[Rfam]
The family of this 88-nucleotide RNA sequence from Ruminococcaceae bacterium AF10-16 is "c-di-GMP-I riboswitch aptamer". A search with the family's covariance model found it, with a score of 69 bits. Rfam 15.1 lists 5,092 matches to the family in 1,772 species. The organism belongs to Oscillospiraceae, within Bacteria.

RNA sequence: AAACGAUAAUAGCAAACCCGGUGAAAACCGGCGACGCAAAGCUAUAGGGCCUUACCCCUGGGAACAGGGCUGGCAGCCAGUUACCGAA
Numbered sequence: 001a002a003a004c005g006a007u008a009a010u011a012g013c014a015a016a017c018c019c020g021g022u023g024a025a026a027a028c029c030g031g032c033g034a035c036g037c038a039a040a041g042c043u044a045u046a047g048g049g050c051c052u053u054a055c056c057c058c059u060g061g062g063a064a065c066a067g068g069g070c071u072g073g074c075a076g077c078c079a080g081u082u083a084c085c086g087a088a
Stems, first nucleotide, its partner, number of pairs: 012037002018031005040082004047078002049074003056068002